[Rfam]
RNA sequence: AUUAGUUAGUGAUGAUUUUUGAAAUUAAAAACAGAUGGGAAUCUCUGAAAAAGAGUGAAGAUUUUUUAAAAACUGAAGUUAGU
Numbered sequence: 001a002u003u004a005g006u007u008a009g010u011g012a013u014g015a016u017u018u019u020u021g022a023a024a025u026u027a028a029a030a031a032c033a034g035a036u037g038g039g040a041a042u043c044u045c046u047g048a049a050a051a052a053g054a055g056u057g058a059a060g061a062u063u064u065u066u067u068a069a070a071a072a073c074u075g076a077a078g079u080u081a082g083u
Base pairs, nucleotide, nucleotide: 001083002082003081004080005079006078007077
This 83-nucleotide RNA from Callorhinus ursinus belongs to the Rfam family "Small nucleolar RNA SNORD79". From the family's description: snoRNA U79 or Z22 is found in intron 7 of the gas5 gene in humans and is also present in mice. For this family Rfam cites "Classification of gas5 as a multi-small-nucleolar-RNA (snoRNA) host gene and a member of the 5'-terminal oligopyrimidine gene family reveals common features of snoRNA host genes" (Smith and Steitz, Mol Cell Biol, 1998). The source organism's lineage runs through Eukaryota, Metazoa, Bilateria, Eutheria and Callorhinus. Its Rfam clan is "SNORD74 clan". By type it is a C/D-box small nucleolar RNA.